[Rfam]
RNA: c-di-AMP riboswitch aptamer (ydaO/yuaA leader)
RNA sequence: AUAGUUCUAUUGCUUAAUCUUUCAAUAAGAGCGGGGGACCCAAUUAUUUUCGCGGAAAUUUCUGUUUAAUGUGAAUACUUCCGCUAUAGGUGAAUUCUAUGAAGAAGGGGCUUAUUGUUUCCCGAAGUCCUAACCUGAAAGCUAACCUCGUAAGCGUUUUAGUGGAAACAG
Numbered sequence: 001a002u003a004g005u006u007c008u009a010u011u012g013c014u015u016a017a018u019c020u021u022u023c024a025a026u027a028a029g030a031g032c033g034g035g036g037g038a039c040c041c042a043a044u045u046a047u048u049u050u051c052g053c054g055g056a057a058a059u060u061u062c063u064g065u066u067u068a069a070u071g072u073g074a075a076u077a078c079u080u081c082c083g084c085u086a087u088a089g090g091u092g093a094a095u096u097c098u099a100u101g102a103a104g105a106a107g108g109g110g111c112u113u114a115u116u117g118u119u120u121c122c123c124g125a126a127g128u129c130c131u132a133a134c135c136u137g138a139a140a141g142c143u144a145a146c147c148u149c150g151u152a153a154g155c156g157u158u159u160u161a162g163u164g165g166a167a168a169c170a171g
Base pairs, nucleotide, nucleotide: 011156012155013154014153018030019029020028031151032150033149034148035147036146088136089135090134096105097104098103108130109129110128111127112126113125